RNA sequence: AUAAAAAAGCCCUGCAGUUUUGCUGCAGGGUCCUUCUAUACUUCUAGGUUCUCGCGCAUCGAUAGAACCUAAAGGCAGAAGGAAAAAGGGAGAGGAGAAACCGGAGGAAGAACUUAUGGGGAAACGUAAGUCUUCUCCGUGG
Numbered sequence: 001a002u003a004a005a006a007a008a009g010c011c012c013u014g015c016a017g018u019u020u021u022g023c024u025g026c027a028g029g030g031u032c033c034u035u036c037u038a039u040a041c042u043u044c045u046a047g048g049u050u051c052u053c054g055c056g057c058a059u060c061g062a063u064a065g066a067a068c069c070u071a072a073a074g075g076c077a078g079a080a081g082g083a084a085a086a087a088g089g090g091a092g093a094g095g096a097g098a099a100a101c102c103g104g105a106g107g108a109a110g111a112a113c114u115u116a117u118g119g120g121g122a123a124a125c126g127u128a129a130g131u132c133u134u135c136u137c138c139g140u141g142g
Stems, first nucleotide, its partner, number of pairs: 010030009031090005102139004107135004112131005
Dot-bracket structure: .........(((((((((...)))))))))(((((..................................................)))))...........((((.((((.(((((..........)))))))))))))...
ylbH leader: a 142-nucleotide sequence from [Anoxybacillus] calidus. From the family's description: This family is a putative regulatory RNA structure that is found upstream of the ylbH gene in B. subtilis and related low GC Gram-positive bacteria. The family's RNA type in Rfam is cis-regulatory leader. Gene Ontology term of the family: regulation of gene expression. Taxonomically the source falls in Paranoxybacillus (Bacteria, Bacillota, Bacilli, Caryophanales). A search with the family's covariance model found it, with a score of 96 bits.